[Rfam]
RNA sequence: UAAUACCAGGGUCAAAUAGACAUGCGUUUCAUACUUGUAUGAAAAAGCAUGUCUACUUGACCCGAAAAAACAUGAGAAAGAGCCAUUUUUCAAAGAAAAAUGAGCGAUUUCGAAUGUUUUUAGGGCGCUAGGCGCCAGUGACGCCUGCCCAGCGCCGACCGCAGCGGAGCGGAGACGCGCGAGUGCGACAGCACGGAGCGAUCCGUGGUAUCA
Number, nucleotide and partner (000 for none) at each position: 001u213002a000003a211004u210005a209006c208007c207008a000009g000010g062011g061012u060013c059014a000015a000016a000017u055018a054019g053020a052021c051022a050023u049024g048025c047026g000027u045028u044029u042030c041031a040032u039033a038034c000035u000036u000037g000038u033039a032040u031041g030042a029043a000044a028045a027046a000047g025048c024049a023050u022051g021052u020053c019054u018055a017056c000057u000058u000059g013060a012061c011062c010063c000064g000065a000066a121067a120068a119069a118070a117071c116072a115073u114074g000075a000076g111077a110078a109079a108080g000081a000082g000083c000084c102085a101086u100087u099088u098089u097090u096091c095092a000093a000094a000095g091096a090097a089098a088099a087100a086101u085102g084103a000104g000105c000106g000107a000108u079109u078110u077111c076112g000113a000114a073115u072116g071117u070118u069119u068120u067121u066122a000123g204124g203125g202126c200127g199128c198129u000130a000131g194132g000133c000134g000135c000136c000137a000138g000139u000140g000141a000142c000143g000144c000145c000146u000147g000148c000149c000150c000151a000152g000153c000154g000155c000156c000157g000158a000159c000160c000161g000162c000163a000164g000165c000166g000167g000168a000169g000170c000171g000172g000173a000174g000175a000176c000177g000178c000179g000180c000181g000182a000183g000184u000185g000186c000187g000188a000189c000190a000191g000192c000193a000194c131195g000196g000197a000198g128199c127200g126201a000202u125203c124204c123205g000206u000207g007208g006209u005210a004211u003212c000213a001
Description
The record is a 213-nucleotide RNA sequence from Catenibacillus scindens, which matches "Clostridiales-1 RNA" in Rfam. The source organism's lineage runs through Bacteria, Clostridia, Lachnospirales, Lachnospiraceae and Catenibacillus.